[Rfam]
RNA: glmS glucosamine-6-phosphate activated ribozyme aptamer
Organism: Alkalihalophilus pseudofirmus
RNA sequence: UAGAAAUAAAAAGCGCCUGAACUACACAUGGACGGAAAUCUGUGUAGUUGACGAGGAGAGGGUUUAUCGAUUGUUCGGCGGAUGCCCUCCGGUUGUAGCAUGACAGCCGUUAAGUUUCUGUAAAAAACAAAGGGGUGACUCUUUGCACAAAAUCAGAAACAGCAUGCCAC
Numbered sequence: 001u002a003g004a005a006a007u008a009a010a011a012a013g014c015g016c017c018u019g020a021a022c023u024a025c026a027c028a029u030g031g032a033c034g035g036a037a038a039u040c041u042g043u044g045u046a047g048u049u050g051a052c053g054a055g056g057a058g059a060g061g062g063u064u065u066a067u068c069g070a071u072u073g074u075u076c077g078g079c080g081g082a083u084g085c086c087c088u089c090c091g092g093u094u095g096u097a098g099c100a101u102g103a104c105a106g107c108c109g110u111u112a113a114g115u116u117u118c119u120g121u122a123a124a125a126a127a128c129a130a131a132g133g134g135g136u137g138a139c140u141c142u143u144u145g146c147a148c149a150a151a152a153u154c155a156g157a158a159a160c161a162g163c164a165u166g167c168c169a170c
Base pairs, nucleotide, nucleotide: 020049021048022047023046024045025044026043027042058089059088060087061086062085067078068077069076070075090109091108092107093106094105095104114160115159116158117157118156119155120154128145129144130143131142132141133140134139